[Rfam]
RNA: mir-8834 microRNA precursor family
RNA sequence: AGGAGGAACAGCCACAGUGGUUACGGCAGCUCUGGAAACCUGGAUUCAGCCCCCACCAGAACUACUGAGCUCUCGGUCUGCAGGGCCUGGAGGCUUCGGGGCAGG
Numbered sequence: 001a002g003g004a005g006g007a008a009c010a011g012c013c014a015c016a017g018u019g020g021u022u023a024c025g026g027c028a029g030c031u032c033u034g035g036a037a038a039c040c041u042g043g044a045u046u047c048a049g050c051c052c053c054c055a056c057c058a059g060a061a062c063u064a065c066u067g068a069g070c071u072c073u074c075g076g077u078c079u080g081c082a083g084g085g086c087c088u089g090g091a092g093g094c095u096u097c098g099g100g101g102c103a104g105g
Stems, first nucleotide, its partner, number of pairs: 002097004009089003012085002019078004025072001028071005034065001036063001039059001042056001